[Rfam]
RNA sequence: AAGUAUUGCAGCUCUUUUAGAAUUUGUCUAGCAAAUUCUGGUUUUCACUGGAAAAUUCCC
Numbered sequence: 001a002a003g004u005a006u007u008g009c010a011g012c013u014c015u016u017u018u019a020g021a022a023u024u025u026g027u028c029u030a031g032c033a034a035a036u037u038c039u040g041g042u043u044u045u046c047a048c049u050g051g052a053a054a055a056u057u058c059c060c
Stems, first nucleotide, its partner, number of pairs: 034057002036053007
Rfam assigns this 60-nucleotide sequence from Piliocolobus tephrosceles to the family "U7 small nuclear RNA". Lineage of the source: Eukaryota > Eumetazoa > Vertebrata > Euarchontoglires > Piliocolobus.